A member of the RNA family "MIR390 microRNA precursor family", 118 nucleotides long. The family's consensus secondary structure was predicted with WAR. For this family Rfam cites "ASRP: the Arabidopsis Small RNA Project Database" (Gustafson et al., Nucleic Acids Res, 2005). It is one of the family's seed sequences. Gene Ontology terms of the family: RISC complex and miRNA-mediated post-transcriptional gene silencing.
RNA sequence: UGAAAGAAUCUGUUAAGCUCAGGAGGGAUAGCGCCAUAGAAUGUCUUCUUUUUUUGGUUCCAUUUUAUUGAUUGAUCUUCUCUUGCGCUAUCCAUCCUGAGUUUCAUGGCUUCUUCAU
Numbered sequence: 001u002g003a004a005a006g007a008a009u010c011u012g013u014u015a016a017g018c019u020c021a022g023g024a025g026g027g028a029u030a031g032c033g034c035c036a037u038a039g040a041a042u043g044u045c046u047u048c049u050u051u052u053u054u055u056g057g058u059u060c061c062a063u064u065u066u067a068u069u070g071a072u073u074g075a076u077c078u079u080c081u082c083u084u085g086c087g088c089u090a091u092c093c094a095u096c097c098u099g100a101g102u103u104u105c106a107u108g109g110c111u112u113c114u115u116c117a118u
Stems, first nucleotide, its partner, number of pairs: 010109001016103009026093009